[Rfam]
RNA sequence: ACGAUUGUUUACUAGGGUUCCGCCGGUUGUUCCAACGCCGGGCUGGUCCGAGAGUAAACCGCUCUUCUCGAAGGGCGACACGGAAGGAUAAAAACCUGGGAGAU
Number, nucleotide and partner (000 for none) at each position: 001a000002c000003g000004a000005u000006u000007g059008u058009u057010u056011a055012c054013u000014a000015g049016g048017g000018u000019u000020c046021c045022g043023c041024c040025g039026g038027u037028u000029g000030u000031u000032c000033c000034a000035a000036c000037g027038c026039c025040g024041g023042g000043c022044u000045g021046g020047u000048c016049c015050g000051a000052g000053a000054g012055u011056a010057a009058a008059c007060c077061g076062c075063u074064c073065u072066u071067c000068u000069c000070g000071a066072a065073g064074g063075g062076c061077g060078a000079c099080a000081c102082g000083g000084a000085a097086g096087g095088a000089u000090a000091a000092a000093a000094a000095c087096c086097u085098g000099g079100g000101a000102g081103a000104u000
This 104-nucleotide RNA from Paenibacillus ferrarius belongs to the Rfam family "Guanidine-I riboswitch aptamer". NCBI's taxonomy places the organism under Bacteria, Bacillati, Bacilli, Caryophanales, Paenibacillus. The pairing is the family consensus, mapped onto this sequence.